[Rfam]
RNA sequence: GGAUCGAUGAUGAGACCAACUAUCUGUGGAUGCUGAGGGACUCAUAACAAAUGGCAAUCUGAAGUUC
Numbered sequence: 001g002g003a004u005c006g007a008u009g010a011u012g013a014g015a016c017c018a019a020c021u022a023u024c025u026g027u028g029g030a031u032g033c034u035g036a037g038g039g040a041c042u043c044a045u046a047a048c049a050a051a052u053g054g055c056a057a058u059c060u061g062a063a064g065u066u067c
Base pairs, nucleotide, nucleotide: 001067002066003065004064
Source information
The record is a 67-nucleotide RNA from Nannospalax galili, which matches "Small nucleolar RNA SNORD109A" in Rfam. Rfam describes the family as follows. Humans have two copies of the SNORD109 gene, SNORD109A and SNORD109B. Taxonomically the source falls in Nannospalax (Eukaryota, Craniata, Theria, Muroidea). Its family is annotated with RNA processing and nucleolus in the Gene Ontology.